[Rfam]
RNA sequence: GAGUUACUUUUUCCGGCAAGGUUAAGCAUUUAAAAAUGUGUAGCCGAAGCGAAAGCGAGUCUUAAUAGGGCGACUAGUCGGAAGGAGUAGACGCGAAACCAAGUGAUCUACCCUUGGUCAGGUUGAAGGUUAGGUAACACUAACUGGAGGACCGAACCGAUAAGCGUUGAAAAGCUUCCGGAUGAACUGAGGGUGGGGGUGAAAGGCUAAUCAAACUUGGAGAUAGCUCGUA
Numbered sequence: 001g002a003g004u005u006a007c008u009u010u011u012u013c014c015g016g017c018a019a020g021g022u023u024a025a026g027c028a029u030u031u032a033a034a035a036a037u038g039u040g041u042a043g044c045c046g047a048a049g050c051g052a053a054a055g056c057g058a059g060u061c062u063u064a065a066u067a068g069g070g071c072g073a074c075u076a077g078u079c080g081g082a083a084g085g086a087g088u089a090g091a092c093g094c095g096a097a098a099c100c101a102a103g104u105g106a107u108c109u110a111c112c113c114u115u116g117g118u119c120a121g122g123u124u125g126a127a128g129g130u131u132a133g134g135u136a137a138c139a140c141u142a143a144c145u146g147g148a149g150g151a152c153c154g155a156a157c158c159g160a161u162a163a164g165c166g167u168u169g170a171a172a173a174g175c176u177u178c179c180g181g182a183u184g185a186a187c188u189g190a191g192g193g194u195g196g197g198g199g200u201g202a203a204a205g206g207c208u209a210a211u212c213a214a215a216c217u218u219g220g221a222g223a224u225a226g227c228u229c230g231u232a
Stems, first nucleotide, its partner, number of pairs: 005089013020045004026039003049056002059071004092230002095227001099220006108196011119184001121153004128145006157181003162177004198208003

The family of this 232-nucleotide part of an RNA from Bacteroides finegoldii is "Bacterial large subunit ribosomal RNA". NCBI's taxonomy places the organism under Bacteria, Pseudomonadati, Bacteroidota, Bacteroidia, Bacteroides.